[Rfam]
RNA sequence: AUCCUUGCUUAUAAGCCGGGGGACUAGUCUUUGCUAUGUUCACUAGUAAAAUGCGAGGAAAAUGAUAGAGACAACCAGACACCGUGCAAACUCUGGUUUGUUCGGUCACUAUGUCUGUCCCACAUAA
Numbered sequence: 001a002u003c004c005u006u007g008c009u010u011a012u013a014a015g016c017c018g019g020g021g022g023a024c025u026a027g028u029c030u031u032u033g034c035u036a037u038g039u040u041c042a043c044u045a046g047u048a049a050a051a052u053g054c055g056a057g058g059a060a061a062a063u064g065a066u067a068g069a070g071a072c073a074a075c076c077a078g079a080c081a082c083c084g085u086g087c088a089a090a091c092u093c094u095g096g097u098u099u100g101u102u103c104g105g106u107c108a109c110u111a112u113g114u115c116u117g118u119c120c121c122a123c124a125u126a127a
Base pairs, nucleotide, nucleotide: 002059003058004057005056006055007054008053015047016046019043021041022040023039024038025036026035027034028033068121070119071118072117073116076113077112079110081106082105083104084103086101087100088099089098090097091096